This 84-nucleotide RNA from Geotrypetes seraphini belongs to the Rfam family "Small nucleolar RNA SNORD103/SNORD85". Pairs were carried over by alignment from the consensus structure. The literature on the family includes a 2001 paper in EMBO J by Huttenhofer et al., "RNomics: an experimental approach that identifies 201 candidates for novel, small, non-messenger RNAs in mouse". The source organism's lineage runs through Eukaryota, Eumetazoa, Teleostomi, Sarcopterygii and Geotrypetes. It scores 78 bits against the family's covariance model. Rfam 15.1 lists 1,349 matches to the family in 595 species. Rfam classes the family as a C/D-box small nucleolar RNA.
RNA sequence: UCUGGCAAUGAUGACACACUUGCCCUCACUGAGAACACUGUUCGCUAAUGAGAACUUUAAUGUACUCAGAAUGACUGAGCUAGA
Numbered sequence: 001u002c003u004g005g006c007a008a009u010g011a012u013g014a015c016a017c018a019c020u021u022g023c024c025c026u027c028a029c030u031g032a033g034a035a036c037a038c039u040g041u042u043c044g045c046u047a048a049u050g051a052g053a054a055c056u057u058u059a060a061u062g063u064a065c066u067c068a069g070a071a072u073g074a075c076u077g078a079g080c081u082a083g084a
Stems, first nucleotide, its partner, number of pairs: 001084006